[Rfam]
Shown here is a 102-nucleotide RNA sequence from Oxobacter pfennigii, a member of the family "Purine riboswitch aptamer". The source organism's lineage runs through Bacteria, Bacillota, Clostridia, Clostridiaceae and Oxobacter. The base pairs follow the family's consensus structure, which is taken from published work. A search with the family's covariance model found it, with a score of 86 bits.

RNA sequence: AAACUGAAUAUAAAGUUCGCCCGUAUAUACCCGGUAAUAUGGUCCGGGUGUUUCUACCAGACUGCCGCAAAUUGUCUGACUAUGGGUGUUUGUAAGCAUAAU
Numbered sequence: 001a002a003a004c005u006g007a008a009u010a011u012a013a014a015g016u017u018c019g020c021c022c023g024u025a026u027a028u029a030c031c032c033g034g035u036a037a038u039a040u041g042g043u044c045c046g047g048g049u050g051u052u053u054c055u056a057c058c059a060g061a062c063u064g065c066c067g068c069a070a071a072u073u074g075u076c077u078g079a080c081u082a083u084g085g086g087u088g089u090u091u092g093u094a095a096g097c098a099u100a101a102u
Stems, first nucleotide, its partner, number of pairs: 018088008029049006058078005064072001